This 111-nucleotide RNA sequence from Microcebus murinus belongs to the Rfam family "Y RNA". Y RNAs are components of the Ro ribonucleoprotein particle (Ro RNP), in association with Ro60 and La proteins. The Y RNAs and Ro60 and La proteins are well conserved, but the function of the Ro RNP is not known. In humans the RNA component can be one of four small RNAs -- hY1, hY3, hY4 and hY5. These small RNAs are predicted to fold into a conserved secondary structure containing three stem structures. The largest of the four, hY1, contains an additional hairpin. This family includes a significant number of annotated pseudogenes and the model is expected to discriminate poorly between real and Y RNA related pseudogenes.
RNA sequence: GUCUGUCCGAAGGUAGUGAGUUAUCCCAAUUGAUUGUUCACAGUCAGUUAUAGAUUGGAGUAUUUGUUCCAUUCCCACCCCCAUCUCACUAUGGCACUUGACUAGUCUUUU
Number, nucleotide and partner (000 for none) at each position: 001g106002u105003c000004u000005g102006u101007c100008c000009g099010a098011a000012g000013g095014u094015a090016g089017u088018g087019a086020g085021u000022u000023a000024u000025c000026c000027c000028a073029a072030u071031u000032g069033a068034u000035u000036g000037u000038u000039c000040a000041c000042a000043g000044u000045c000046a000047g000048u000049u000050a000051u000052a000053g000054a000055u000056u000057g000058g000059a000060g000061u000062a000063u000064u000065u000066g000067u000068u033069c032070c000071a030072u029073u028074c000075c000076c000077a000078c000079c000080c000081c000082c000083a000084u000085c020086u019087c018088a017089c016090u015091a000092u000093g000094g014095c013096a000097c000098u010099u009100g007101a006102c005103u000104a000105g002106u001107c000108u000109u000110u000111u000

By type it is a non-coding RNA gene. The family's consensus secondary structure is taken from published work. A search with the family's covariance model found it, with a score of 53 bits.